[Rfam]
RNA sequence: CACGGGAGUCCGGUGAGCCGGGCUGAGAGGAAGCUUCUCCAAGCUUCGACCGUCGAACCUGAUCUGGAUCAUGCCAGCGCAGGGAGGCCCUCUUGAAACCCG
Numbered sequence: 001c002a003c004g005g006g007a008g009u010c011c012g013g014u015g016a017g018c019c020g021g022g023c024u025g026a027g028a029g030g031a032a033g034c035u036u037c038u039c040c041a042a043g044c045u046u047c048g049a050c051c052g053u054c055g056a057a058c059c060u061g062a063u064c065u066g067g068a069u070c071a072u073g074c075c076a077g078c079g080c081a082g083g084g085a086g087g088c089c090c091u092c093u094u095g096a097a098a099c100c101c102g
Stems, first nucleotide, its partner, number of pairs: 001086001002053004008023005030047007058083004064077004
This 102-nucleotide sequence from Leifsonia sp. AK011 belongs to the Rfam family "TPP riboswitch aptamer (THI element)". A reference for the family is Kulshina et al. (2010), "Thermodynamic analysis of ligand binding and ligand binding-induced tertiary structure formation by the thiamine pyrophosphate riboswitch", RNA. It scores 57 bits against the family's covariance model.